[Rfam]
The family of this 130-nucleotide RNA from Tigriopus californicus is "Small Cajal body specific RNA 8". Rfam describes the family as follows. scaRNAs are a specific class of small nuclear RNAs which localise to the Cajal bodies and guide the modification of RNA polymerase II transcribed spliceosomal RNAs U1, U2, U4, U5 and U12. U92 belong to the H/ACA box class of guide RNAs as it has the predicted hairpin-hinge-hairpin-tail structure, conserved H/ACA-box motifs and is found associated with GAR1. Rfam links the family to the GO terms RNA processing, Cajal body and nucleolus. Rfam classes the family as a small Cajal body RNA. Taxonomically the source falls in Tigriopus (Eukaryota, Opisthokonta, Bilateria, Altocrustacea).
RNA sequence: CGGAGGUGUUACAGAUAAUCCUGAUAGUUACAGAUUACGUAAGGACACUUGCACCUCCUAUAUUAAUUUGCUCUCUGAUGACUGGGUUACUUUGAGAUCAAGUGCCCAGACAGAUACGGAGUAGACAAUC
Numbered sequence: 001c002g003g004a005g006g007u008g009u010u011a012c013a014g015a016u017a018a019u020c021c022u023g024a025u026a027g028u029u030a031c032a033g034a035u036u037a038c039g040u041a042a043g044g045a046c047a048c049u050u051g052c053a054c055c056u057c058c059u060a061u062a063u064u065a066a067u068u069u070g071c072u073c074u075c076u077g078a079u080g081a082c083u084g085g086g087u088u089a090c091u092u093u094g095a096g097a098u099c100a101a102g103u104g105c106c107c108a109g110a111c112a113g114a115u116a117c118g119g120a121g122u123a124g125a126c127a128a129u130c
Stems, first nucleotide, its partner, number of pairs: 002058006019045004068124007082109003088104003